[Rfam]
RNA sequence: UACAAGAGACCAAGAAAGAUGUCAUCCCAGUGCCCAGACACUGGGAUCCAGAAAACUUAACUUUAAAUGAGCGCACCAGGUAAUAAAAACUGGAUUCCAGUGUCACGCACUGGAAUGACACCCUCCUAGUGUACUU
Numbered sequence: 001u002a003c004a005a006g007a008g009a010c011c012a013a014g015a016a017a018g019a020u021g022u023c024a025u026c027c028c029a030g031u032g033c034c035c036a037g038a039c040a041c042u043g044g045g046a047u048c049c050a051g052a053a054a055a056c057u058u059a060a061c062u063u064u065a066a067a068u069g070a071g072c073g074c075a076c077c078a079g080g081u082a083a084u085a086a087a088a089a090c091u092g093g094a095u096u097c098c099a100g101u102g103u104c105a106c107g108c109a110c111u112g113g114a115a116u117g118a119c120a121c122c123c124u125c126c127u128a129g130u131g132u133a134c135u136u
Base pairs, nucleotide, nucleotide: 011131012130015127020120021119022118023117024116025115027113028112029111030110031109032108033107037104038103039102040101041100042099043098044097045096046095047094048093049092050091051090

About this RNA:
This 136-nucleotide sequence from Trichonephila clavata belongs to the Rfam family "Wolbachia sRNA 46". Taxonomically the source falls in Trichonephila (Eukaryota, Bilateria, Ecdysozoa, Nephilidae). A search with the family's covariance model found it, with a score of 76 bits. The family's RNA type in Rfam is small RNA. The family has 3 seed sequences and 237 matches in Rfam 15.1.